[Rfam]
The family of this 73-nucleotide sequence is "RT-18 RNA". Rfam's curators put it in the seed alignment. By type it is a small RNA.
RNA sequence: UGGCACUUGCCAAAAAUGAAACCGAAACGGCAGAGAUUAGUAAAUCAUUGAAAGUCUUUGAGGUAAUAAGAAA
Numbered sequence: 001u002g003g004c005a006c007u008u009g010c011c012a013a014a015a016a017u018g019a020a021a022c023c024g025a026a027a028c029g030g031c032a033g034a035g036a037u038u039a040g041u042a043a044a045u046c047a048u049u050g051a052a053a054g055u056c057u058u059u060g061a062g063g064u065a066a067u068a069a070g071a072a073a
Stems, first nucleotide, its partner, number of pairs: 001012004021064003031060007043049002